A member of the RNA family "small nucleolar RNA snoR127" from Malus domestica, 173 nucleotides long. It scores 55 bits against the family's covariance model. The family's RNA type in Rfam is C/D-box small nucleolar RNA. A reference for the family is Chen and Wu (2009), "Mining small RNA sequencing data: a new approach to identify small nucleolar RNAs in Arabidopsis", Nucleic Acids Res. Taxonomically the source falls in Malus (Eukaryota, Spermatophyta, Magnoliopsida, rosids).
RNA sequence: CUGGGAUGAUGCAAAUUAGCCAAAUCAUAUGUUGAUGUGCUCCAUGAGGCAAUUUUUCCGAAGCACUUUACCAGUCUCGUCUAUAGACUUGGCAAGGUUUUCGAUGAAUUUUCCUUUCGUAGAAGCGUGUCUAUCUGAUGAUACAAUAGAGAUAGGGUUCCCUGCUGACCAGA
Numbered sequence: 001c002u003g004g005g006a007u008g009a010u011g012c013a014a015a016u017u018a019g020c021c022a023a024a025u026c027a028u029a030u031g032u033u034g035a036u037g038u039g040c041u042c043c044a045u046g047a048g049g050c051a052a053u054u055u056u057u058c059c060g061a062a063g064c065a066c067u068u069u070a071c072c073a074g075u076c077u078c079g080u081c082u083a084u085a086g087a088c089u090u091g092g093c094a095a096g097g098u099u100u101u102c103g104a105u106g107a108a109u110u111u112u113c114c115u116u117u118c119g120u121a122g123a124a125g126c127g128u129g130u131c132u133a134u135c136u137g138a139u140g141a142u143a144c145a146a147u148a149g150a151g152a153u154a155g156g157g158u159u160c161c162c163u164g165c166u167g168a169c170c171a172g173a
Stems, first nucleotide, its partner, number of pairs: 001172004